Record summary:
The family of this 154-nucleotide RNA sequence from Paenibacillus methanolicus is "c-di-AMP riboswitch aptamer (ydaO/yuaA leader)". The organism belongs to Paenibacillus, within Bacteria. The match comes from Rfam's covariance-model search (74 bits).

RNA sequence: AUGAAAAAAAUGCCGAAUUCUCGCAAGAGAAACGGGGGAACCAUCUUUGGGUGAAUUGAUCCCGGCGGAUGCGACAAGCAUACGCCCGAGGCGAUCAUAGGGUACCUUCAACCGAACCCCACAGCUAACCUCGUAGGCACCGGAAGGGGUUUCU
Number, nucleotide and partner (000 for none) at each position: 001a000002u000003g000004a000005a000006a000007a000008a000009a000010a000011u139012g138013c137014c136015g000016a000017a000018u031019u030020c029021u000022c000023g000024c000025a000026a000027g000028a000029g020030a019031a018032a134033c133034g132035g131036g130037g129038g000039a000040a000041c000042c000043a047044u000045c000046u000047u043048u000049g119050g118051g117052u000053g000054a000055a000056u000057u097058g096059a095060u094061c000062c000063c000064g000065g000066c000067g000068g000069a000070u000071g000072c000073g000074a000075c000076a000077a000078g000079c000080a000081u000082a000083c000084g000085c000086c000087c000088g000089a000090g000091g000092c000093g000094a060095u059096c058097a057098u000099a000100g113101g112102g000103u110104a000105c000106c000107u000108u000109c000110a103111a000112c101113c100114g000115a000116a000117c051118c050119c049120c000121a000122c000123a000124g000125c000126u000127a000128a000129c037130c036131u035132c034133g033134u032135a000136g014137g013138c012139a011140c000141c000142g000143g000144a000145a000146g000147g000148g000149g000150u000151u000152u000153c000154u000